[Rfam]
RNA sequence: UGCAGGGUGAGCAGUCUGAUCUUGUUUCUGUGGAAAUGUAACUUGGAAUCAUUUCGGCGAUGAGAUCAGCCUGUAGAAUCUUGU
Number, nucleotide and partner (000 for none) at each position: 001u000002g084003c083004a082005g081006g080007g079008u078009g000010a000011g074012c073013a072014g071015u000016c069017u068018g067019a066020u065021c064022u063023u062024g061025u060026u059027u000028c000029u000030g000031u000032g000033g055034a054035a053036a052037u051038g050039u000040a000041a000042c000043u000044u000045g000046g000047a000048a000049u000050c038051a037052u036053u035054u034055c033056g000057g000058c000059g026060a025061u024062g023063a022064g021065a020066u019067c018068a017069g016070c000071c014072u013073g012074u011075a000076g000077a000078a008079u007080c006081u005082u004083g003084u002
The record is an 84-nucleotide RNA sequence from Brassicogethes aeneus, which matches "mir-6012 microRNA precursor family" in Rfam. NCBI's taxonomy places the organism under Eukaryota, Bilateria, Mandibulata, Polyphaga, Brassicogethes. It scores 76 bits against the family's covariance model.